[Rfam]
RNA sequence: GAUGAAGCUAUGGGGGUCAUUGUAGAAGCGUGCUCGCCGCGACCCCUGCCAGCCCUUUUCAGGGCUGCAAUUCUACA
Numbered sequence: 001g002a003u004g005a006a007g008c009u010a011u012g013g014g015g016g017u018c019a020u021u022g023u024a025g026a027a028g029c030g031u032g033c034u035c036g037c038c039g040c041g042a043c044c045c046c047u048g049c050c051a052g053c054c055c056u057u058u059u060c061a062g063g064g065c066u067g068c069a070a071u072u073c074u075a076c077a
Stems, first nucleotide, its partner, number of pairs: 013046006021077007028040003050067007

A member of the RNA family "Mammalian CPEB3 ribozyme" from Parnassius apollo, 77 nucleotides long. The base pairs follow the family's consensus structure, which is taken from published work.